[Rfam]
Rfam assigns this 367-nucleotide RNA sequence from Sphingomonas sp. S-NIH.Pt15_0812 to the family "Alphaproteobacteria transfer-messenger RNA". The literature on the family includes a 1996 paper in RNA by Williams and Bartel, "Phylogenetic analysis of tmRNA secondary structure". The organism belongs to Sphingomonas, within Bacteria. The family's consensus secondary structure is taken from published work. It is annotated as a non-coding RNA gene.
Nucleotides: 367
Stems, first nucleotide, its partner, number of pairs: 041056005060221005071214007086200003090197003096112005113182007222237003227247003232243002332347004338366001343361001
Number, partner (000 for none) and nucleotide at each position: 001000g002000g003000c004000g005000u006000u007000u008000g009000c010000a011000u012000g013000u014000g015000c016000c017000c018000g019000c020000g021000c022000a023000c024000g025000c026000c027000c028000u029000a030000u031000a032000u033000c034000g035000g036000u037000c038000g039000g040000u041056g042055c043054c044053g045052g046000c047000u048000u049000u050000g051000g052045c053044c054043g055042g056041c057000u058000a059000u060221g061220g062219c063218g064217a065000u066000a067000a068000a069000u070000c071214g072213c073212g074211g075210c076209g077208u078000a079000g080000a081000a082000u083000a084000g085000a086200u087199g088198c089000a090197g091196c092195g093000g094000a095000c096112c097111c098110g099109g100108g101000g102000g103000c104000g105000g106000u107000a108100c109099c110098c111097g112096g113182c114181g115180g116179c117178u118177c119176c120000a121000c122000c123000a124000u125000u126000c127000g128000g129000g130000c131000c132000g133000g134000u135000c136000g137000a138000c139000c140000a141000u142000g143000g144000c145000u146000u147000u148000c149000a150000g151000c152000c153000a154000u155000g156000g157000c158000u159000c160000g161000g162000g163000c164000g165000a166000c167000c168000g169000g170000a171000a172000u173000g174000a175000c176119g177118g178117g179116g180115c181114c182113g183000a184000a185000c186000u187000a188000g189000g190000a191000u192000c193000g194000a195092c196091g197090u198088g199087u200086a201000u202000u203000g204000a205000a206000a207000g208077g209076c210075g211074c212073u213072g214071u215000u216000u217064u218063c219062g220061c221060u222237c223236g224235g225000a226000a227247u228246g229245g230000g231000a232243c233242c234000a235224c236223c237222g238000c239000a240000a241000c242233g243232g244000c245229c246228c247227a248000u249000u250000a251000c252000a253000c254000a255000a256000g257000u258000g259000c260000c261000a262000a263000c264000g265000a266000u267000a268000a269000c270000g271000a272000a273000g274000c275000a276000c277000u278000c279000g280000c281000g282000a283000u284000u285000g286000c287000g288000g289000c290000g291000u292000a293000a294000c295000u296000g297000a298000g299000g300000g301000c302000c303000u304000c305000a306000c307000g308000g309000c310000c311000u312000g313000a314000c315000g316000u317000u318000a319000c320000a321000c322000c323000a324000a325000a326000a327000u328000a329000g330000c331000g332347c333346g334345g335344u336000c337000g338366g339000a340000c341000c342000c343361c344335a345334c346333c347332g348000g349000g350000c351000a352000a353000c354000a355000g356000a357000a358000g359000g360000g361343g362000a363000u364000u365000c366338c367000a